[Rfam]
RNA sequence: CAAGCAUGAAUGCUGCUAUUUUCCGCUUCUUUUUUUACUUUAGCACCUGAACUCAGGGGGCUAGCGCGUGAAAGAAGAAACGAAAAACAGCGCCAGAAAGCCUCCACUAUGGAGGCUUUUUUGCU
Numbered sequence: 001c002a003a004g005c006a007u008g009a010a011u012g013c014u015g016c017u018a019u020u021u022u023c024c025g026c027u028u029c030u031u032u033u034u035u036u037a038c039u040u041u042a043g044c045a046c047c048u049g050a051a052c053u054c055a056g057g058g059g060g061c062u063a064g065c066g067c068g069u070g071a072a073a074g075a076a077g078a079a080a081c082g083a084a085a086a087a088c089a090g091c092g093c094c095a096g097a098a099a100g101c102c103u104c105c106a107c108u109a110u111g112g113a114g115g116c117u118u119u120u121u122u123g124c125u
Stems, first nucleotide, its partner, number of pairs: 015091003020086003024082002027079007035071004046057003060065001097119010